RNA sequence: GGGUUGCGGAGGGUGGGCCUGGGAGGGGUGGCGGUCGUUUUAUGUCUAACCCUAACUGAGAAGGGCAUAGGCGCUGCGCUUUUGUUCCCCGCACGCUGUUUUUCUCGCUGACUUUCAGCGGGCGGAAAAGCCUCGGCCUACUGCCAUCCACCAUCCAGUUUGGAGCAAACAAAAAAUGUCAGCCGCCGGCCUGCUCGCCCCUCCCGGGAUCCUGCGGUGGCUCGCCCGCUUAGCCCCCGCGUCCCGCCUGGAGGCCGCGGUCGGCCCGGGGCUUCUCCGGAGGCACCCAUUGCCGUCGCGAAGAGUUGGGCUCUGUCAGCCGCGGGACCUUUGGGGGCCAAGGGCGAGGCUCUGGCCGCAGGGAGAGAAAACGGAGCGGGUCCCCUUGCGCGGUGCGCUUCCCUGAGCUGUGGGACUUGCACCCGGGACUAGGCUCACACACAU
Numbered sequence: 001g002g003g004u005u006g007c008g009g010a011g012g013g014u015g016g017g018c019c020u021g022g023g024a025g026g027g028g029u030g031g032c033g034g035u036c037g038u039u040u041u042a043u044g045u046c047u048a049a050c051c052c053u054a055a056c057u058g059a060g061a062a063g064g065g066c067a068u069a070g071g072c073g074c075u076g077c078g079c080u081u082u083u084g085u086u087c088c089c090c091g092c093a094c095g096c097u098g099u100u101u102u103u104c105u106c107g108c109u110g111a112c113u114u115u116c117a118g119c120g121g122g123c124g125g126a127a128a129a130g131c132c133u134c135g136g137c138c139u140a141c142u143g144c145c146a147u148c149c150a151c152c153a154u155c156c157a158g159u160u161u162g163g164a165g166c167a168a169a170c171a172a173a174a175a176a177u178g179u180c181a182g183c184c185g186c187c188g189g190c191c192u193g194c195u196c197g198c199c200c201c202u203c204c205c206g207g208g209a210u211c212c213u214g215c216g217g218u219g220g221c222u223c224g225c226c227c228g229c230u231u232a233g234c235c236c237c238c239g240c241g242u243c244c245c246g247c248c249u250g251g252a253g254g255c256c257g258c259g260g261u262c263g264g265c266c267c268g269g270g271g272c273u274u275c276u277c278c279g280g281a282g283g284c285a286c287c288c289a290u291u292g293c294c295g296u297c298g299c300g301a302a303g304a305g306u307u308g309g310g311c312u313c314u315g316u317c318a319g320c321c322g323c324g325g326g327a328c329c330u331u332u333g334g335g336g337g338c339c340a341a342g343g344g345c346g347a348g349g350c351u352c353u354g355g356c357c358g359c360a361g362g363g364a365g366a367g368a369a370a371a372c373g374g375a376g377c378g379g380g381u382c383c384c385c386u387u388g389c390g391c392g393g394u395g396c397g398c399u400u401c402c403c404u405g406a407g408c409u410g411u412g413g414g415a416c417u418u419g420c421a422c423c424c425g426g427g428a429c430u431a432g433g434c435u436c437a438c439a440c441a442c443a444u
Base pairs, nucleotide, nucleotide: 018208019207020206021205022204023203024202025201026200027199028198029197030196031195033191034190035189036188037187078131079130080129081128082127090124091123092122094120095119096118097117098116107183108182109181110180111179112178113176114175115174211362212361213360214359215358216357217356224350225349226348227346228345229344230343231342233338234337235336236335237334238333239332243326244325245324246323247322256300257299258298259297260296262295263294264293265292268288269287270286302314303313304312305311374436375435376434377433379430380429381428382427383426384425393422394421395420396419397418400415401414402413403412
This 444-nucleotide RNA belongs to the Rfam family "Vertebrate telomerase RNA". The family's consensus secondary structure is taken from published work. Its Rfam clan is "Telomerase clan". It is one of the family's seed sequences. It is annotated as a non-coding RNA gene.